Annotation:
Shown here is a 505-nucleotide RNA from Virgisporangium aliadipatigenens, a member of the family "Saccharopolyspora sRNA 350". Pairs were carried over by alignment from the consensus structure, which was predicted with RNAfold. A reference for the family is Liu et al. (2013), "Prediction and characterization of small non-coding RNAs related to secondary metabolites in Saccharopolyspora erythraea", PLoS One. The family's RNA type in Rfam is antisense RNA. The family has 2 seed sequences and 1,170 matches in Rfam 15.1. The organism belongs to Virgisporangium, within Bacteria.
RNA sequence: UUGACGGUGAACUCCCAAUGGGCGUUCCCGUCGGCCAGCACCUGGUCGCCGAAGUACUCCCCGUCGGCGAGCACACCGAGCACGGUGUCGUCGCCGUACUGGCCCUGGCCGACCUUGCUCACCUUGCCGUGGGCGAGGAGGAAGAGCCGAUCGGCCUCCUGCCCCUGGCGCACGAUGACCUCGCCGGCCGAGAACUCCUGCUGGCUGAACCUGUCGGCCAGCGAGCGCAGCGCCGUCAGGUCGUCGAACUCCCGCAGCACCGGCAGCUCGCGCAGUUCCUCGGGAAUGACGCGGAUCUGCGCGCCGGUGCUGGUGAAGGUGAUCCGCCCGUCCCCGACGGUGUAGCUGAGGCGGCGGUUGACCCGGAAGGCGCCGCCCUUCGUCUCCACCCACGGCAGCAGCUUGAGCAGCCAGCGGGAGGUGAUCUCCUGCAUCUGCGGAACGGACUUGGUGGUGGUCGCCAGGUUGCGGGCGGCGGCGGUACUGAGGCUGAGGCGCUCUUCGG
Numbered sequence: 001u002u003g004a005c006g007g008u009g010a011a012c013u014c015c016c017a018a019u020g021g022g023c024g025u026u027c028c029c030g031u032c033g034g035c036c037a038g039c040a041c042c043u044g045g046u047c048g049c050c051g052a053a054g055u056a057c058u059c060c061c062c063g064u065c066g067g068c069g070a071g072c073a074c075a076c077c078g079a080g081c082a083c084g085g086u087g088u089c090g091u092c093g094c095c096g097u098a099c100u101g102g103c104c105c106u107g108g109c110c111g112a113c114c115u116u117g118c119u120c121a122c123c124u125u126g127c128c129g130u131g132g133g134c135g136a137g138g139a140g141g142a143a144g145a146g147c148c149g150a151u152c153g154g155c156c157u158c159c160u161g162c163c164c165c166u167g168g169c170g171c172a173c174g175a176u177g178a179c180c181u182c183g184c185c186g187g188c189c190g191a192g193a194a195c196u197c198c199u200g201c202u203g204g205c206u207g208a209a210c211c212u213g214u215c216g217g218c219c220a221g222c223g224a225g226c227g228c229a230g231c232g233c234c235g236u237c238a239g240g241u242c243g244u245c246g247a248a249c250u251c252c253c254g255c256a257g258c259a260c261c262g263g264c265a266g267c268u269c270g271c272g273c274a275g276u277u278c279c280u281c282g283g284g285a286a287u288g289a290c291g292c293g294g295a296u297c298u299g300c301g302c303g304c305c306g307g308u309g310c311u312g313g314u315g316a317a318g319g320u321g322a323u324c325c326g327c328c329c330g331u332c333c334c335c336g337a338c339g340g341u342g343u344a345g346c347u348g349a350g351g352c353g354g355c356g357g358u359u360g361a362c363c364c365g366g367a368a369g370g371c372g373c374c375g376c377c378c379u380u381c382g383u384c385u386c387c388a389c390c391c392a393c394g395g396c397a398g399c400a401g402c403u404u405g406a407g408c409a410g411c412c413a414g415c416g417g418g419a420g421g422u423g424a425u426c427u428c429c430u431g432c433a434u435c436u437g438c439g440g441a442a443c444g445g446a447c448u449u450g451g452u453g454g455u456g457g458u459c460g461c462c463a464g465g466u467u468g469c470g471g472g473c474g475g476c477g478g479c480g481g482u483a484c485u486g487a488g489g490c491u492g493a494g495g496c497g498c499u500c501u502u503c504g505g
Stems, first nucleotide, its partner, number of pairs: 006390004011385001014382001021325002025322002028319002031316002035313008045305001047303003052298001054233002057230002060227001062225001064223001065111004077102001079100002082097005117222003122217002129210002132206003136202002139199003143196002148192001153189004159183001160178001164174001166172001236294002240290005249283002254278001256277003261270002329342004351379001353377005362370002391431002394428002397425001399423002403418002407415001437476002440473001443470002446467001447465006478503001480499003484495001
Dot-bracket structure: .....((((.(..(......((..((.((.((..((((((((..(.(((..(.((.((.(.(.(((((........(.((.(((((......))))).)).).....)))).....(((..((.....((.(((.((.(((.((...(....((((..((...(.(.....).)...)....)..))))..)..))))).)).)))..)).....))..)))).).).)).))..((..(((((....((...(.(((..((......))....))))...))..)))))..))...)..))).))))))))).)).)).)).))...((((......))))........(.(((((....((.....))..))))).)..)..).))))((.((.(.((..((..(.......).))...)).).)).)).....((.(..((.(((((((.......)))))).).))..).)).(.(((.(..........).)))...)..